[Rfam]
This 182-nucleotide RNA sequence from Ruminococcaceae bacterium FB2012 belongs to the Rfam family "Lysine riboswitch aptamer".

Nucleotides: 182
Stems, first nucleotide, its partner, number of pairs: 007176005016092006024084001032077010096121003100116004106110001122148005129141004150167007
Number, partner (000 for none) and nucleotide at each position: 001000g002000c003000a004000a005000g006000a007176g008175a009174u010173a011172g012000a013000g014000g015000c016092g017091c018090g019089g020088u021087c022000a023000a024084a025000a026000a027000a028000a029000g030000u031000a032077g033076c034075g035074u036073u037072u038071u039070c040069c041068g042000a043000c044000u045000u046000a047000g048000g049000u050000c051000a052000g053000a054000g055000c056000a057000a058000c059000c060000g061000g062000g063000g064000c065000u066000u067000a068041u069040g070039g071038g072037g073036a074035a075034c076033g077032u078000g079000a080000a081000a082000g083000g084024u085000g086000c087021g088020a089019c090018c091017g092016c093000c094000g095000a096121a097120g098119c099000a100116c101115g102114g103113g104000u105000g106110u107000c108000g109000g110106a111000a112000u113103c114102c115101c116100g117000g118000a119098g120097c121096u122148g123147a124146c125145c126144g127000c128000u129141g130140c131139u132138u133000u134000a135000a136000g137000a138132g139131a140130g141129c142000u143000u144126c145125g146124g147123u148122u149000g150167u151166c152165a153164u154163c155162a156161u157000g158000c159000u160000u161156a162155u163154g164153g165152u166151g167150g168000a169000g170000u171000g172011c173010u174009a175008u176007c177000g178000g179000c180000a181000u182000a

Record summary
A search with the family's covariance model found it, with a score of 85 bits.